[Rfam]
RNA sequence: GCCGCUUUCGUCCAAUGGUAGGGCACCUGGCUUACAUCCAGAUGACGGGAGUUCGAUUCUCUCAAGCGGUA
Numbered sequence: 001g002c003c004g005c006u007u008u009c010g011u012c013c014a015a016u017g018g019u020a021g022g023g024c025a026c027c028u029g030g031c032u033u034a035c036a037u038c039c040a041g042a043u044g045a046c047g048g049g050a051g052u053u054c055g056a057u058u059c060u061c062u063c064a065a066g067c068g069g070u071a
Stems, first nucleotide, its partner, number of pairs: 001070007010024004027041004047063005
Dot-bracket structure: (((((((..((((.......))))..((((.......)))).....(((((.......)))))))))))).